[Rfam]
RNA sequence: AUGAAGACGAUGAUUAUUUCCUGAAAUGAUCGUUAUUGAAUAAACUAAGUGAUCUCUCUCUUCAGAGAUUACUAGCCAGAAAGCUAAUCCAU
Numbered sequence: 001a002u003g004a005a006g007a008c009g010a011u012g013a014u015u016a017u018u019u020c021c022u023g024a025a026a027u028g029a030u031c032g033u034u035a036u037u038g039a040a041u042a043a044a045c046u047a048a049g050u051g052a053u054c055u056c057u058c059u060c061u062u063c064a065g066a067g068a069u070u071a072c073u074a075g076c077c078a079g080a081a082a083g084c085u086a087a088u089c090c091a092u
Base pairs, nucleotide, nucleotide: 001092002091003090005088
Notes:
Shown here is a 92-nucleotide sequence from Salix dunnii, a member of the family "Small nucleolar RNA Z103". Its family is annotated with nucleolus and RNA processing in the Gene Ontology. The family's consensus secondary structure was predicted with PFOLD.